Annotation:
The record is a 568-nucleotide sequence from Suillus placidus, which matches "Nuclear RNase P" in Rfam. Lineage of the source: Eukaryota > Dikarya > Agaricomycetidae > Suillaceae > Suillus. The base pairs follow the family's consensus structure, which is taken from published work. It is annotated as a ribozyme.
[Rfam]
RNA sequence: ACCAGCUCGAAAGCCACGAAUGCUCAUCACACACAGGAUCGCUCCAUGCAUCCAAAUUCCUGAGCGGGCUAAGGUCUGAGCAUUCUAAUCCCCCCUCGAUCGGCUCCAGCAGAGCCCAGCUGUAGUCAGCUGCGCGACGUACCAGAAAAACAGCUUUGUUUCUCAUCGUCCCGAAGACUCUGUUCAUCACAGAAGAGGGUGAGAAAGAAGGCCUUGAAAACGUCGCGGGGAUCGGGCGAACCUGUGCUUGUCGUUUGGUCGUCGCUAUCGUGCAUGUGUCUGUGAAGAAGACGCUCAUGAUUACUAGGAGCGUUGUGUCGGAGGUGUCUCUGCUCCCGCAUUGGUGGACAAGCCUGUUGCGGGCUAGUUACCACUUCGACGAGCACGUGUGCUCGUCGCUGCCAGGGUCAUCAUGAAAUGCCGCAAGAGGCUAGCCCCUCGAGGCAUGAGGCCAACCACCUCGUUGCUUACGAGGCGCGACUGCGACUGGUUAGUCCUUGAGUUCACUUCGUGGCUCACGUAUCUUUUGUGGAUCGUGAAACUCGAUUCAGACUACUCUUGAGAUGGU
Numbered sequence: 001a002c003c004a005g006c007u008c009g010a011a012a013g014c015c016a017c018g019a020a021u022g023c024u025c026a027u028c029a030c031a032c033a034c035a036g037g038a039u040c041g042c043u044c045c046a047u048g049c050a051u052c053c054a055a056a057u058u059c060c061u062g063a064g065c066g067g068g069c070u071a072a073g074g075u076c077u078g079a080g081c082a083u084u085c086u087a088a089u090c091c092c093c094c095c096u097c098g099a100u101c102g103g104c105u106c107c108a109g110c111a112g113a114g115c116c117c118a119g120c121u122g123u124a125g126u127c128a129g130c131u132g133c134g135c136g137a138c139g140u141a142c143c144a145g146a147a148a149a150a151c152a153g154c155u156u157u158g159u160u161u162c163u164c165a166u167c168g169u170c171c172c173g174a175a176g177a178c179u180c181u182g183u184u185c186a187u188c189a190c191a192g193a194a195g196a197g198g199g200u201g202a203g204a205a206a207g208a209a210g211g212c213c214u215u216g217a218a219a220a221c222g223u224c225g226c227g228g229g230g231a232u233c234g235g236g237c238g239a240a241c242c243u244g245u246g247c248u249u250g251u252c253g254u255u256u257g258g259u260c261g262u263c264g265c266u267a268u269c270g271u272g273c274a275u276g277u278g279u280c281u282g283u284g285a286a287g288a289a290g291a292c293g294c295u296c297a298u299g300a301u302u303a304c305u306a307g308g309a310g311c312g313u314u315g316u317g318u319c320g321g322a323g324g325u326g327u328c329u330c331u332g333c334u335c336c337c338g339c340a341u342u343g344g345u346g347g348a349c350a351a352g353c354c355u356g357u358u359g360c361g362g363g364c365u366a367g368u369u370a371c372c373a374c375u376u377c378g379a380c381g382a383g384c385a386c387g388u389g390u391g392c393u394c395g396u397c398g399c400u401g402c403c404a405g406g407g408u409c410a411u412c413a414u415g416a417a418a419u420g421c422c423g424c425a426a427g428a429g430g431c432u433a434g435c436c437c438c439u440c441g442a443g444g445c446a447u448g449a450g451g452c453c454a455a456c457c458a459c460c461u462c463g464u465u466g467c468u469u470a471c472g473a474g475g476c477g478c479g480a481c482u483g484c485g486a487c488u489g490g491u492u493a494g495u496c497c498u499u500g501a502g503u504u505c506a507c508u509u510c511g512u513g514g515c516u517c518a519c520g521u522a523u524c525u526u527u528u529g530u531g532g533a534u535c536g537u538g539a540a541a542c543u544c545g546a547u548u549c550a551g552a553c554u555a556c557u558c559u560u561g562a563g564a565u566g567g568u
Stems, first nucleotide, its partner, number of pairs: 001568004008561003013515007021066005036053004041049002076551005092230004102116005117132006134226007153212003516539005